[Rfam]
RNA: tRNA
Organism: Schaalia zhouxuedongae
RNA sequence: GGGCCUGUAGCUCAGUUGGUCAGAGCGCUGCGUUUACACCGCAGAUGUCGUCGGUUCGAAUCCGGCCGGGCCCA
Numbered sequence: 001g002g003g004c005c006u007g008u009a010g011c012u013c014a015g016u017u018g019g020u021c022a023g024a025g026c027g028c029u030g031c032g033u034u035u036a037c038a039c040c041g042c043a044g045a046u047g048u049c050g051u052c053g054g055u056u057c058g059a060a061u062c063c064g065g066c067c068g069g070g071c072c073c074a
Base pairs, nucleotide, nucleotide: 001073002072003071004070005069006068007067010026011025012024013023028044029043030042031041032040050066051065052064053063054062